Rfam assigns this 146-nucleotide RNA sequence from Camphora micrantha to the family "small nucleolar RNA snoR135". The family's consensus secondary structure was predicted with RNAalifold. A reference for the family is Chen and Wu (2009), "Mining small RNA sequencing data: a new approach to identify small nucleolar RNAs in Arabidopsis", Nucleic Acids Res. A search with the family's covariance model found it, with a score of 114 bits. Taxonomically the source falls in Camphora (Eukaryota, Streptophytina, Embryophyta, Lauraceae). Rfam classes the family as an H/ACA-box small nucleolar RNA.
[Rfam]
RNA sequence: AAAGCAGGGAUUGUGUGUAUCGGUGUUAUGCUGUCAUGGGUGCAUUUCAUGCCGAAAGUAUUCCCUGCAAUAUAGAAUCUGGAGGAAAAUGGGCAGUUGGGUUUUCAUUCUCCUUGAUUUCCCAACAAUCAUUUUCCCCCACACCC
Number, nucleotide and partner (000 for none) at each position: 001a000002a000003a000004g068005c067006a066007g065008g064009g063010a062011u000012u000013g000014u000015g045016u044017g043018u042019a041020u040021c000022g000023g000024u000025g000026u000027u000028a000029u000030g000031c000032u000033g000034u000035c000036a000037u000038g000039g000040g020041u019042g018043c017044a016045u015046u000047u000048c000049a000050u000051g000052c000053c000054g000055a000056a000057a000058g000059u000060a000061u000062u010063c009064c008065c007066u006067g005068c004069a000070a000071u000072a000073u000074a000075g000076a000077a000078u000079c000080u000081g140082g139083a000084g137085g136086a135087a134088a133089a132090u131091g130092g129093g000094c000095a000096g126097u125098u124099g123100g000101g000102u000103u000104u000105u000106c000107a000108u000109u000110c000111u000112c000113c000114u000115u000116g000117a000118u000119u000120u000121c000122c000123c099124a098125a097126c096127a000128a000129u092130c091131a090132u089133u088134u087135u086136c085137c084138c000139c082140c081141a000142c000143a000144c000145c000146c000